[Rfam]
RNA sequence: CUUGGCCCCUCACGUGGUGUCAUCUCGUCGAACUCCCCCAGGGCAGGAAUGCAGCAAGGGUAGAUGGGCUCUGGCAGGUGCGUGAGGGGUCUUUAAC
Numbered sequence: 001c002u003u004g005g006c007c008c009c010u011c012a013c014g015u016g017g018u019g020u021c022a023u024c025u026c027g028u029c030g031a032a033c034u035c036c037c038c039c040a041g042g043g044c045a046g047g048a049a050u051g052c053a054g055c056a057a058g059g060g061u062a063g064a065u066g067g068g069c070u071c072u073g074g075c076a077g078g079u080g081c082g083u084g085a086g087g088g089g090u091c092u093u094u095a096a097c
Base pairs, nucleotide, nucleotide: 004091005090006089007088008087009086010085011084012083013082014081015078018076019075020074021073022072024068025067026066027065028064029063035060036059037058043052044051045050
Dot-bracket structure: ...((((((((((((..(((((.((((((.....(((.....(((....))).....)))..))))))...))))).)..)))))))))))......